[Rfam]
RNA: SAM riboswitch aptamer (S box leader)
Organism: Salirhabdus euzebyi
RNA sequence: CUCUUAUCAAGAGUGGCGGAGGGAUAGGCCCUGUGAAGCCCGGCAACCUUCAAGUAUUCGACUUGAAAAGGUGCCAAGUCCUACAGAUCAAUUUCGAUCUGAGAGAUAAGAG
Numbered sequence: 001c002u003c004u005u006a007u008c009a010a011g012a013g014u015g016g017c018g019g020a021g022g023g024a025u026a027g028g029c030c031c032u033g034u035g036a037a038g039c040c041c042g043g044c045a046a047c048c049u050u051c052a053a054g055u056a057u058u059c060g061a062c063u064u065g066a067a068a069a070g071g072u073g074c075c076a077a078g079u080c081c082u083a084c085a086g087a088u089c090a091a092u093u094u095c096g097a098u099c100u101g102a103g104a105g106a107u108a109a110g111a112g
Stems, first nucleotide, its partner, number of pairs: 001112008013041001015040003021031003025083004042075004047071002049067006079104001084101006
Dot-bracket structure: ((((((((....(.(((...(((.[[[[)))......))))((((.((((((((.......))))))..))))))...(]]]]((((((......))))))..)))))))))